[Rfam]
Nucleotides: 130
Stems, first nucleotide, its partner, number of pairs: 003054007011046001016041001020037004028033001065127002068124002071121005081109005087102004
Number, partner (000 for none) and nucleotide at each position: 001000a002000u003054c004053a005052c006051u007050u008049g009048u010000g011046u012000g013000u014000a015000u016041g017000u018000c019000c020037u021036u022035g023034u024000u025000u026000a027000a028033u029000a030000u031000g032000u033028a034023a035022c036021a037020a038000a039000c040000c041016c042000u043000u044000a045000u046011a047000g048009a049008c050007a051006g052005g053004u054003g055000c056000a057000a058000a059000u060000a061000g062000u063000a064000a065127a066126u067000c068124c069123u070000c071121u072120u073119u074118u075117g076000c077000a078000a079000c080000c081109c082108a083107g084106a085105a086000c087102u088101c089100a090099u091000u092000g093000c094000u095000g096000a097000g098000u099090a100089u101088g102087a103000a104000a105085u106084u107083u108082u109081g110000g111000u112000a113000c114000a115000u116000g117075u118074a119073g120072g121071a122000a123069g124068g125000a126066a127065u128000a129000u130000g
A member of the RNA family "Small nucleolar RNA SNORA40" from Dipodomys ordii, 130 nucleotides long. Rfam's curators write: The snoRNA ACA 40 belongs to the H/ACA family of snoRNAs and guides the pseudouridylation of 28S rRNA subunit at position U4565. NB This family has a high threshold value to exclude a large number of closely related sequences that do not appear to have conserved H and ACA boxes, and may be pseudogenes. It is annotated as an H/ACA-box small nucleolar RNA. Rfam 15.1 lists 2,550 matches to the family in 517 species. It scores 87 bits against the family's covariance model. The literature on the family includes a 1997 paper in J Mol Biol by Ofengand and Bakin, "Mapping to nucleotide resolution of pseudouridine residues in large subunit ribosomal RNAs from representative eukaryotes, prokaryotes, archaebacteria, mitochondria and chloroplasts".